[Rfam]
RNA sequence: GGCCACCCUCUGCAGGGCAAUUGAUGGGGGAGCUCCGCAAUCGAUCGCCCUGCAGAGGGAGGCC
Numbered sequence: 001g002g003c004c005a006c007c008c009u010c011u012g013c014a015g016g017g018c019a020a021u022u023g024a025u026g027g028g029g030g031a032g033c034u035c036c037g038c039a040a041u042c043g044a045u046c047g048c049c050c051u052g053c054a055g056a057g058g059g060a061g062g063c064c
Stems, first nucleotide, its partner, number of pairs: 001064004006059013020045006027038001029036002
RNA: mir-9242 microRNA precursor family